Description: The family of this 136-nucleotide RNA from Astyanax mexicanus is "Small nucleolar RNA SNORA31". The literature on the family includes a 2001 paper in EMBO J by Huttenhofer et al., "RNomics: an experimental approach that identifies 201 candidates for novel, small, non-messenger RNAs in mouse". The organism belongs to Astyanax, within Eukaryota. The base pairs follow the family's consensus structure, which was predicted with RNAalifold. The family has 5 seed sequences and 2,094 matches in Rfam 15.1. About the family: ACA31 (SNORA31) belongs to the H/ACA class of snoRNAs which are thought to guide the sites of modification of uridines to pseudouridines. ACA31 is predicted to guide the pseudouridylation of U3713 in 28S rRNA and U218 in 18S rRNA. This family includes the mouse homologue snoMBI-161. The match comes from Rfam's covariance-model search (54 bits).
RNA sequence: UGGCAUCCUCUGAUAGACCUUUGGCAUUUCUUUGUGGCCUCUAGGUUUGCACUUGGAUGCGACAGCAAUUCUCCUCGUGCUUUCUAGCUGUCUUGUAUGUGAGUGUCAGUAUCAGAUUGAAGAGGGGAGAACAGGC
Numbered sequence: 001u002g003g004c005a006u007c008c009u010c011u012g013a014u015a016g017a018c019c020u021u022u023g024g025c026a027u028u029u030c031u032u033u034g035u036g037g038c039c040u041c042u043a044g045g046u047u048u049g050c051a052c053u054u055g056g057a058u059g060c061g062a063c064a065g066c067a068a069u070u071c072u073c074c075u076c077g078u079g080c081u082u083u084c085u086a087g088c089u090g091u092c093u094u095g096u097a098u099g100u101g102a103g104u105g106u107c108a109g110u111a112u113c114a115g116a117u118u119g120a121a122g123a124g125g126g127g128a129g130a131a132c133a134g135g136c
Stems, first nucleotide, its partner, number of pairs: 003060006011051002014049006023039003028034001072128005080119001083116003086112001088109003092105001